[Rfam]
Source information:
This 117-nucleotide sequence from Carassius auratus belongs to the Rfam family "U5 spliceosomal RNA". About the family: U5 RNA is a component of both types of known spliceosome. The precise function of this molecule is unknown, though it is known that the 5' loop is required for splice site selection and p220 binding, and that both the 3' stem-loop and the Sm site are important for Sm protein binding and cap methylation. A search with the family's covariance model found it, with a score of 74 bits. Pairs were carried over by alignment from the consensus structure, which is taken from published work. Rfam classes the family as a spliceosomal small nuclear RNA.

RNA sequence: CAGCUCGAGUUUCUCUUCAUUGUCGCAUAAAUCUUUCCGCCUUUUACUAAAGAUUUCCGUGGAGGGGAACUUUUGCGAGUGACCUGUAUUUUUGGGUGCUCUGCUCACAGCAGAGCU
Numbered sequence: 001c002a003g004c005u006c007g008a009g010u011u012u013c014u015c016u017u018c019a020u021u022g023u024c025g026c027a028u029a030a031a032u033c034u035u036u037c038c039g040c041c042u043u044u045u046a047c048u049a050a051a052g053a054u055u056u057c058c059g060u061g062g063a064g065g066g067g068a069a070c071u072u073u074u075g076c077g078a079g080u081g082a083c084c085u086g087u088a089u090u091u092u093u094g095g096g097u098g099c100u101c102u103g104c105u106c107a108c109a110g111c112a113g114a115g116c117u
Stems, first nucleotide, its partner, number of pairs: 003080004009070011029056008096117001098116006